[Rfam]
RNA sequence: CUGGCUGCUGCUGUGUGGAAGACUAGUGAUUUUGUUGUUUUUAGUUAGAUCAACUGACAACAAAUCACAGUCUGCCAAAUAGCACAGGCUU
Numbered sequence: 001c002u003g004g005c006u007g008c009u010g011c012u013g014u015g016u017g018g019a020a021g022a023c024u025a026g027u028g029a030u031u032u033u034g035u036u037g038u039u040u041u042u043a044g045u046u047a048g049a050u051c052a053a054c055u056g057a058c059a060a061c062a063a064a065u066c067a068c069a070g071u072c073u074g075c076c077a078a079a080u081a082g083c084a085c086a087g088g089c090u091u
Base pairs, nucleotide, nucleotide: 003089005087006086009084011082012081013080014079016077017076018075020073021072022071023070024069026068027067028066029065030064031063032062034061035060036059037058038057039056
Rfam assigns this 91-nucleotide sequence from Pleuronectes platessa to the family "mir-7 microRNA precursor family".
The base pairs follow the family's consensus structure, which was predicted with PFOLD.
Rfam links the family to the GO terms miRNA-mediated post-transcriptional gene silencing and RISC complex.
On this family, see Lagos-Quintana et al., Science 2001: "Identification of novel genes coding for small expressed RNAs".
The match comes from Rfam's covariance-model search (79 bits).
Lineage of the source: Eukaryota > Deuterostomia > Chordata > Teleostomi > Pleuronectes.
Rfam's curators write: This family represents the microRNA (miRNA) precursor mir-7.